[Rfam]
RNA: mir-3943 microRNA precursor family
Organism: Sapajus apella
RNA sequence: GACAGCAGCUGCAGCUUAGCCCCCAGUCUUCACUUGGCGUGGACAACUUGCUACGUAAAGUGAGGGGUGGGCUACAGCUGGCUUC
Numbered sequence: 001g002a003c004a005g006c007a008g009c010u011g012c013a014g015c016u017u018a019g020c021c022c023c024c025a026g027u028c029u030u031c032a033c034u035u036g037g038c039g040u041g042g043a044c045a046a047c048u049u050g051c052u053a054c055g056u057a058a059a060g061u062g063a064g065g066g067g068u069g070g071g072c073u074a075c076a077g078c079u080g081g082c083u084u085c
Base pairs, nucleotide, nucleotide: 001085002084004083006080007079008078009077010076011075013073014072015071016070017069018068020066021065022064024062028060029059030058032056033055035053036052037051038050039049